[Rfam]
RNA sequence: CGGCACAACCACGGGAGUCCGGUGAGCCGGGCUGAGAGGAAGCGAUCCACGCUUCGACCGUCGAACCUGAUCCGGAUCAUGCCGGCGCAGGGAGGAGUUCAGAUGAGUGCUU
Numbered sequence: 001c002g003g004c005a006c007a008a009c010c011a012c013g014g015g016a017g018u019c020c021g022g023u024g025a026g027c028c029g030g031g032c033u034g035a036g037a038g039g040a041a042g043c044g045a046u047c048c049a050c051g052c053u054u055c056g057a058c059c060g061u062c063g064a065a066c067c068u069g070a071u072c073c074g075g076a077u078c079a080u081g082c083c084g085g086c087g088c089a090g091g092g093a094g095g096a097g098u099u100c101a102g103a104u105g106a107g108u109g110c111u112u
Stems, first nucleotide, its partner, number of pairs: 007099003011061004017032005039055005066091004072085004
This 112-nucleotide RNA sequence from Microbacterium lemovicicum belongs to the Rfam family "TPP riboswitch aptamer (THI element)". From the family's description: Vitamin B(1) in its active form thiamin pyrophosphate (TPP) is an essential coenzyme that is synthesised by coupling of pyrimidine and thiazole moieties in bacteria. The family's consensus secondary structure is taken from published work.